Rfam assigns this 82-nucleotide RNA from Duffyella gerundensis to the family "sroB RNA". A reference for the family is Vogel et al. (2003), "RNomics in Escherichia coli detects new sRNA species and indicates parallel transcriptional output in bacteria", Nucleic Acids Res. It is annotated as a small RNA.

[Rfam]
RNA sequence: CAACGAGUCCCUCGUUGAUGACAACUAAAAUUAUACAAGAACUCCUCUUUGACAGGCCGAUAGCAAUAUCGGCCUUCUUUUU
Numbered sequence: 001c002a003a004c005g006a007g008u009c010c011c012u013c014g015u016u017g018a019u020g021a022c023a024a025c026u027a028a029a030a031u032u033a034u035a036c037a038a039g040a041a042c043u044c045c046u047c048u049u050u051g052a053c054a055g056g057c058c059g060a061u062a063g064c065a066a067u068a069u070c071g072g073c074c075u076u077c078u079u080u081u082u
Base pairs, nucleotide, nucleotide: 003015004014005013006012007011026033027032054075055074056073057072058071059070060069061068062067